Rfam assigns this 303-nucleotide RNA sequence from Nelumbo nucifera to the family "Plant signal recognition particle RNA". A search with the family's covariance model found it, with a score of 155 bits. The family's consensus secondary structure is taken from published work. The source organism's lineage runs through Eukaryota, Viridiplantae, Proteales, Nelumbonaceae and Nelumbo. Its family is annotated with signal recognition particle, endoplasmic reticulum targeting and SRP-dependent cotranslational protein targeting to membrane, signal sequence recognition in the Gene Ontology.

[Rfam]
RNA sequence: GGGGUCAGUAGCGUGAGCUUUUCACCCAAGUGGGGGCAUCAAGGUGGCCGAAUGUGUGCUCAAAUUUGAGGAGUAGGGCAUGGUGGUGUCUUCUUGUUGGCUCACCCAUUCCAAGUGGGGAGUUGAGCCAAUGGACUUGAGUGAAGACUUGGUCCUCAUAGUUCUUAGAGUGGAGGGCAAUUCGUUAGGCUGGUUUCACAAAGCAUUGAAUACCUCUCACUCCUAAUAGUGAAAGGAUAGCAUGCCAGUGAUUUCCAGGCCCAACAUGCCUCGAGGGAUAAUCUCUAUUGAUUGAUCACUUUU
Numbered sequence: 001g002g003g004g005u006c007a008g009u010a011g012c013g014u015g016a017g018c019u020u021u022u023c024a025c026c027c028a029a030g031u032g033g034g035g036g037c038a039u040c041a042a043g044g045u046g047g048c049c050g051a052a053u054g055u056g057u058g059c060u061c062a063a064a065u066u067u068g069a070g071g072a073g074u075a076g077g078g079c080a081u082g083g084u085g086g087u088g089u090c091u092u093c094u095u096g097u098u099g100g101c102u103c104a105c106c107c108a109u110u111c112c113a114a115g116u117g118g119g120g121a122g123u124u125g126a127g128c129c130a131a132u133g134g135a136c137u138u139g140a141g142u143g144a145a146g147a148c149u150u151g152g153u154c155c156u157c158a159u160a161g162u163u164c165u166u167a168g169a170g171u172g173g174a175g176g177g178c179a180a181u182u183c184g185u186u187a188g189g190c191u192g193g194u195u196u197c198a199c200a201a202a203g204c205a206u207u208g209a210a211u212a213c214c215u216c217u218c219a220c221u222c223c224u225a226a227u228a229g230u231g232a233a234a235g236g237a238u239a240g241c242a243u244g245c246c247a248g249u250g251a252u253u254u255c256c257a258g259g260c261c262c263a264a265c266a267u268g269c270c271u272c273g274a275g276g277g278a279u280a281a282u283c284u285c286u287a288u289u290g291a292u293u294g295a296u297c298a299c300u301u302u303u
Stems, first nucleotide, its partner, number of pairs: 001020003005016003025034003041302007049294002053290002055287002058283001060281001062279001065277003070272002073269002076262004081257003085254001088252002091250001097248005105240001106236002109234002112231002115227002118224006125164004130159001133156002137152006165170001172217005181210004191200002